[Rfam]
RNA sequence: AUCAUGUAAUUAAUUCUACCCAAGACUCAGGCGAUCGUUGAUCUCAAUAAUACCUGCCGAGGAAUUGAAUUCGAAUAAUCAUCGAUUUCUCUCUAUGUCUGGGUAGGCAUGGGGAUUUUUUAUUACCCGA
Numbered sequence: 001a002u003c004a005u006g007u008a009a010u011u012a013a014u015u016c017u018a019c020c021c022a023a024g025a026c027u028c029a030g031g032c033g034a035u036c037g038u039u040g041a042u043c044u045c046a047a048u049a050a051u052a053c054c055u056g057c058c059g060a061g062g063a064a065u066u067g068a069a070u071u072c073g074a075a076u077a078a079u080c081a082u083c084g085a086u087u088u089c090u091c092u093c094u095a096u097g098u099c100u101g102g103g104u105a106g107g108c109a110u111g112g113g114g115a116u117u118u119u120u121u122a123u124u125a126c127c128c129g130a
Stems, first nucleotide, its partner, number of pairs: 028056004033043003090115010

A member of the RNA family "Ribosomal protein L10 leader" from Acetilactobacillus jinshanensis, 130 nucleotides long. This family is a putative r-protein leader autoregulatory structure found in B. subtilis and other low-GC Gram-positive bacteria. It is located in the 5' untranslated regions of mRNAs encoding ribosomal proteins L10 and L12 (rplJ-rplL). A Rho-independent transcription terminator structure that is probably involved in regulation is included at the 3' end. For this family Rfam cites "Diverse mechanisms for regulating ribosomal protein synthesis in Escherichia coli" (Zengel and Lindahl, Prog Nucleic Acid Res Mol Biol, 1994). NCBI's taxonomy places the organism under Bacteria, Bacillati, Lactobacillales, Lactobacillaceae, Acetilactobacillus.